[Rfam]
RNA sequence: GCCAAGCCUAGGGUAGCUCCCGAACGGUCGGAAGCCUUCGCCGGCCUGGCUUGGUGUUUUUCUAUGAAGG
Numbered sequence: 001g002c003c004a005a006g007c008c009u010a011g012g013g014u015a016g017c018u019c020c021c022g023a024a025c026g027g028u029c030g031g032a033a034g035c036c037u038u039c040g041c042c043g044g045c046c047u048g049g050c051u052u053g054g055u056g057u058u059u060u061u062c063u064a065u066g067a068a069g070g
Stems, first nucleotide, its partner, number of pairs: 001055008011021003027045005035070006

Notes: A member of the RNA family "int-alpA RNA" from Tenderia electrophaga, 70 nucleotides long. Rfam 15.1 lists 577 matches to the family in 491 species. The match comes from Rfam's covariance-model search (53 bits). Rfam's curators write: Acidobacteria (1 example), Planctomycetes (1 example), Proteobacteria. The source organism's lineage runs through Bacteria, Pseudomonadati, Pseudomonadota, Tenderiales (SeqCode) and Tenderia (SeqCode).